The family of this 78-nucleotide RNA sequence from Roseovarius sp. MCTG156(2b) is "L2-Alphaproteobacteria ribosomal protein leader".
Taxonomically the source falls in Roseovarius (Bacteria, Pseudomonadota, Rhodobacterales, Roseobacteraceae).
On this family, see Eckert and Weinberg, BMC Microbiol 2020: "Discovery of 20 novel ribosomal leader candidates in bacteria and archaea".
RNA sequence: GGUCACCCAUCAUGGGGGGCUACAACUCAGGCGGGGCCAUUUCGGUGGUUCACGUCAAUAGCAAACGGAAGACAGAAA
Number, nucleotide and partner (000 for none) at each position: 001g021002g020003u019004c018005a000006c017007c016008c015009a000010u000011c000012a000013u000014g000015g008016g007017g006018g004019g003020c002021u001022a000023c000024a000025a000026c000027u000028c000029a000030g056031g055032c054033g053034g051035g050036g049037c048038c047039a046040u045041u000042u000043c000044g000045g040046u039047g038048g037049u036050u035051c034052a000053c033054g032055u031056c030057a000058a000059u000060a000061g000062c000063a000064a000065a000066c000067g000068g000069a000070a000071g000072a000073c000074a000075g000076a000077a000078a000